[Rfam]
RNA sequence: GCACCUCUGGAAAGCAGGCGGUCUUCGCCUCACCGAAGGGGAAACCCCGCGACGCGGCGGGUGAAGCUCUCAGGUGCCCAUGACAGAGGGGGAGAC
Numbered sequence: 001g002c003a004c005c006u007c008u009g010g011a012a013a014g015c016a017g018g019c020g021g022u023c024u025u026c027g028c029c030u031c032a033c034c035g036a037a038g039g040g041g042a043a044a045c046c047c048c049g050c051g052a053c054g055c056g057g058c059g060g061g062u063g064a065a066g067c068u069c070u071c072a073g074g075u076g077c078c079c080a081u082g083a084c085a086g087a088g089g090g091g092g093a094g095a096c
Base pairs, nucleotide, nucleotide: 002091004089005088006087007086008085009084016030017029018028019027032075033074034073035071036070039069040068041067046061047060048059049058050057
RNA: Glycine riboswitch aptamer